[Rfam]
RNA sequence: GGCCUUCCAUCGGGCGGAGAAGGCCCCUAUAUUCUGGGUGCCGCCGCAAGGCGGCUAUGGCGAUAAAUGGCCAUCGCAAUAAACCCAUCGGACCCGGGGGCGGUACCCGGCGCCUCCACCAAAACGCGGGCGGGCCUCGCGUUUCGGCGGGGGCGAAAUAGGAUCGACGAGGGUGUAAAGGAUGCGCUUUCGCCCGGCAUGGUUCCGCCGUUAUCGGGCCGAACUUAUAGUUGCCAACGACAACUAUGCUCCGGUCGCCGCGGCUGCGUAAUGCAGCUUAGGCAACCGAUCCAAAGUCCUGCCGGUUAGCCCCGGCAGGCGGGGUUCGGAGGCACCUGGCAACAGAAGCCUCCACU
Numbered sequence: 001g002g003c004c005u006u007c008c009a010u011c012g013g014g015c016g017g018a019g020a021a022g023g024c025c026c027c028u029a030u031a032u033u034c035u036g037g038g039u040g041c042c043g044c045c046g047c048a049a050g051g052c053g054g055c056u057a058u059g060g061c062g063a064u065a066a067a068u069g070g071c072c073a074u075c076g077c078a079a080u081a082a083a084c085c086c087a088u089c090g091g092a093c094c095c096g097g098g099g100g101c102g103g104u105a106c107c108c109g110g111c112g113c114c115u116c117c118a119c120c121a122a123a124a125c126g127c128g129g130g131c132g133g134g135c136c137u138c139g140c141g142u143u144u145c146g147g148c149g150g151g152g153g154c155g156a157a158a159u160a161g162g163a164u165c166g167a168c169g170a171g172g173g174u175g176u177a178a179a180g181g182a183u184g185c186g187c188u189u190u191c192g193c194c195c196g197g198c199a200u201g202g203u204u205c206c207g208c209c210g211u212u213a214u215c216g217g218g219c220c221g222a223a224c225u226u227a228u229a230g231u232u233g234c235c236a237a238c239g240a241c242a243a244c245u246a247u248g249c250u251c252c253g254g255u256c257g258c259c260g261c262g263g264c265u266g267c268g269u270a271a272u273g274c275a276g277c278u279u280a281g282g283c284a285a286c287c288g289a290u291c292c293a294a295a296g297u298c299c300u301g302c303c304g305g306u307u308a309g310c311c312c313c314g315g316c317a318g319g320c321g322g323g324g325u326u327c328g329g330a331g332g333c334a335c336c337u338g339g340c341a342a343c344a345g346a347a348g349c350c351u352c353c354a355c356u
Stems, first nucleotide, its partner, number of pairs: 040055005059194005069187001072184004084173003088170003094110005111155007195210004200221003204218003322337004328353006
Rfam assigns this 356-nucleotide sequence from Chelatococcus composti to the family "Alphaproteobacteria transfer-messenger RNA". Rfam describes the family as follows. Bacterial tmRNA, also known as 10Sa RNA or SsrA, is named for its dual tRNA and mRNA-like properties. Its role is to liberate the mRNA from a stalled ribosome. NCBI's taxonomy places the organism under Bacteria, Pseudomonadota, Alphaproteobacteria, Hyphomicrobiales, Chelatococcus. For this family Rfam cites "tmRDB (tmRNA database)" (Zwieb et al., Nucleic Acids Res, 2003).